[Rfam]
RNA sequence: UCGGUUCCGGUUCACGCCGCAGCAUCCCGACUUGGGUUGGCGACCCGGGGCC
Dot-bracket structure: ..(((.((((....(((((..................)))))..)))).)))

L31-Actinobacteria ribosomal protein leader: a 52-nucleotide sequence from Mycolicibacterium chubuense. Clan: Ribosomal Protein L31 Leader clan. Rfam's curators put it in the seed alignment. Pairs were carried over by alignment from the consensus structure, which is taken from published work.